[Rfam]
RNA sequence: AUGUCCUUUAAGUUUAGUCCAGAGAGGCUAGCAAGGAAACGAAUUAAAUUGCGGCAUGGUGAAUGCUGUUUUCGUUGAACGCUGCCCUCAGAUAAGGGUGGCGUUUUUUUA
Number, nucleotide and partner (000 for none) at each position: 001a000002u000003g000004u037005c036006c035007u034008u033009u000010a000011a000012g000013u000014u031015u030016a029017g028018u027019c026020c000021a000022g000023a000024g000025a000026g019027g018028c017029u016030a015031g014032c000033a008034a007035g006036g005037a004038a000039a000040c000041g000042a000043a000044u000045u074046a000047a072048a071049u000050u000051g000052c068053g067054g066055c065056a064057u063058g000059g000060u000061g000062a000063a057064u056065g055066c054067u053068g052069u000070u000071u048072u047073c000074g045075u000076u000077g106078a105079a104080c103081g102082c101083u100084g099085c098086c097087c096088u095089c000090a000091g000092a000093u000094a000095a088096g087097g086098g085099u084100g083101g082102c081103g080104u079105u078106u077107u000108u000109u000110u000111a000
RNA: PyrR binding site
Organism: Limosilactobacillus mucosae